RNA sequence: AAUCACUGCAGGAGGUGGUUCACAUUUCAAACCUGAGAAUUAUACUCCCACCACCUGAUCAAGGUAAUGCUUGCGAAGGGAAGCAGUGAACAGAUAAG
Numbered sequence: 001a002a003u004c005a006c007u008g009c010a011g012g013a014g015g016u017g018g019u020u021c022a023c024a025u026u027u028c029a030a031a032c033c034u035g036a037g038a039a040u041u042a043u044a045c046u047c048c049c050a051c052c053a054c055c056u057g058a059u060c061a062a063g064g065u066a067a068u069g070c071u072u073g074c075g076a077a078g079g080g081a082a083g084c085a086g087u088g089a090a091c092a093g094a095u096a097a098g
Stems, first nucleotide, its partner, number of pairs: 006086004011048004016042001017033004054079003060073004
A member of the RNA family "TPP riboswitch aptamer (THI element)" from Flavihumibacter sp. ZG627, 98 nucleotides long. The base pairs follow the family's consensus structure, which is taken from published work.